The family of this 75-nucleotide RNA sequence from Myotis lucifugus is "mir-9229 microRNA precursor family". The match comes from Rfam's covariance-model search (78 bits). Rfam links the family to the GO terms RISC complex and miRNA-mediated post-transcriptional gene silencing.
[Rfam]
RNA sequence: GAGACACCCUUAUGAGGAAAGAAUUGCUUCAGUGGGGCUUUGGUGCUCACUGAGUCUUCCCCCAAGUGUGUCCCU
Numbered sequence: 001g002a003g004a005c006a007c008c009c010u011u012a013u014g015a016g017g018a019a020a021g022a023a024u025u026g027c028u029u030c031a032g033u034g035g036g037g038c039u040u041u042g043g044u045g046c047u048c049a050c051u052g053a054g055u056c057u058u059c060c061c062c063c064a065a066g067u068g069u070g071u072c073c074c075u
Stems, first nucleotide, its partner, number of pairs: 001074001003072005009066003014062001016060004021056002029053008037044002